Shown here is a 70-nucleotide RNA sequence from Vannielia litorea, a member of the family "L2-Alphaproteobacteria ribosomal protein leader". Taxonomically the source falls in Vannielia (Bacteria, Pseudomonadati, Alphaproteobacteria, Paracoccaceae). The base pairs follow the family's consensus structure, which is taken from published work. It is annotated as a cis-regulatory leader.

RNA sequence: GGGCACCUACGGGGGCCUACAACAUCAGGGCAGCGCGCGCGCCGCCCGCACAGAAAACGGAAGACAGUCA
Numbered sequence: 001g002g003g004c005a006c007c008u009a010c011g012g013g014g015g016c017c018u019a020c021a022a023c024a025u026c027a028g029g030g031c032a033g034c035g036c037g038c039g040c041g042c043c044g045c046c047c048g049c050a051c052a053g054a055a056a057a058c059g060g061a062a063g064a065c066a067g068u069c070a
Stems, first nucleotide, its partner, number of pairs: 001018004006014003028047004033042002